A member of the RNA family "bZIP non canonical Hac1/Xbp1 intron" from Trichoderma reesei, 70 nucleotides long. Rfam describes the family as follows. bZIP intron RNA is a non-canonical intron that was first reported in HAC1 gene in yeast and XBP1 gene in Metazoa. The base pairs follow the family's consensus structure, which was predicted with RNAfold. The organism belongs to Trichoderma, within Eukaryota.
[Rfam]
RNA sequence: CGUCUCCACUGAUUCGACACAACGUCCUGCAGAGAUGUUGUGCGACCCGCAGUGUCAAUCGGUGGAGAUG
Numbered sequence: 001c002g003u004c005u006c007c008a009c010u011g012a013u014u015c016g017a018c019a020c021a022a023c024g025u026c027c028u029g030c031a032g033a034g035a036u037g038u039u040g041u042g043c044g045a046c047c048c049g050c051a052g053u054g055u056c057a058a059u060c061g062g063u064g065g066a067g068a069u070g
Stems, first nucleotide, its partner, number of pairs: 001070007010061005021039006044056003